[Rfam]
RNA sequence: UUAGAAAGUUCAGAAACAAUUCCAAAGUUAUUUGAAAGAACUCAAACAAAUGCCAAGUGAAAGAGGAUAGAAUUAAAAUUACAAAUAAAGAUCCGUACGAAGUUUUUAGAGUAGGGUAGUCAAACUUUCAAAAGGACGUAAGUAUAAAAUGAAGUUCGAAUCUUUUAGAGACUAAGGACUUAAAAAACUUAGAACCGUAUCUUCUUUAGGAA
Numbered sequence: 001u002u003a004g005a006a007a008g009u010u011c012a013g014a015a016a017c018a019a020u021u022c023c024a025a026a027g028u029u030a031u032u033u034g035a036a037a038g039a040a041c042u043c044a045a046a047c048a049a050a051u052g053c054c055a056a057g058u059g060a061a062a063g064a065g066g067a068u069a070g071a072a073u074u075a076a077a078a079u080u081a082c083a084a085a086u087a088a089a090g091a092u093c094c095g096u097a098c099g100a101a102g103u104u105u106u107u108a109g110a111g112u113a114g115g116g117u118a119g120u121c122a123a124a125c126u127u128u129c130a131a132a133a134g135g136a137c138g139u140a141a142g143u144a145u146a147a148a149a150u151g152a153a154g155u156u157c158g159a160a161u162c163u164u165u166u167a168g169a170g171a172c173u174a175a176g177g178a179c180u181u182a183a184a185a186a187a188c189u190u191a192g193a194a195c196c197g198u199a200u201c202u203u204c205u206u207u208a209g210g211a212a
Stems, first nucleotide, its partner, number of pairs: 006181006021067003028060007101173010114163004120159002123156006136143002188210006

A member of the RNA family "Leptospira sRNA 30_255" from Leptospira interrogans, 212 nucleotides long. About the family: Identified by RNA seq and Northern blot on cells grown to exponential phase at 30 degree C. The sequence is in the family's curated seed alignment. NCBI's taxonomy places the organism under Bacteria, Pseudomonadati, Leptospiria, Leptospira, Leptospira interrogans serovar Pyrogenes.